This 113-nucleotide sequence from a Mycoplasmatota bacterium belongs to the Rfam family "FMN riboswitch aptamer (RFN element)".
[Rfam]
RNA sequence: UAGAACUUUCAGGGCAGGGUGAAAUUCCCGACCGGCGGUUAUAGUCCGCGAGCUUAGGCUGAUUAGGUGAAACUCCUAAACCGACAGUAAAGUCUGGAUGGAAGAAAGUGGGA
Numbered sequence: 001u002a003g004a005a006c007u008u009u010c011a012g013g014g015c016a017g018g019g020u021g022a023a024a025u026u027c028c029c030g031a032c033c034g035g036c037g038g039u040u041a042u043a044g045u046c047c048g049c050g051a052g053c054u055u056a057g058g059c060u061g062a063u064u065a066g067g068u069g070a071a072a073c074u075c076c077u078a079a080a081c082c083g084a085c086a087g088u089a090a091a092g093u094c095u096g097g098a099u100g101g102a103a104g105a106a107a108g109u110g111g112g113a
Stems, first nucleotide, its partner, number of pairs: 005109006017029003031093002033083002035049004044081002052059002063079005085096003

Pairs were carried over by alignment from the consensus structure, which is taken from published work. About the family: The RFN element is a highly conserved domain that is found frequently in the 5'-untranslated regions of prokaryotic mRNAs that encode for flavin mononucleotide (FMN) biosynthesis and transport proteins. This element is a metabolite-dependent riboswitch that directly binds FMN in the absence of proteins. In Bacillus subtilis, the riboswitch most likely controls gene expression by causing premature transcription termination within the 5' untranslated region of the ribDEAHT operon and precluding access to the ribosome-binding site of ypaA mRNA.The FMN riboswitch structure, reported in present an FMN-bound six-stem junction, adopts a butterfly-like scaffold, stapled together by opposingly directed but nearly identically folded peripheral domains. On this family, see Vitreschak et al., Nucleic Acids Res 2002: "Regulation of riboflavin biosynthesis and transport genes in bacteria by transcriptional and translational attenuation". A search with the family's covariance model found it, with a score of 116 bits. Taxonomically the source falls in Mycoplasmatota (Bacteria, Bacillati).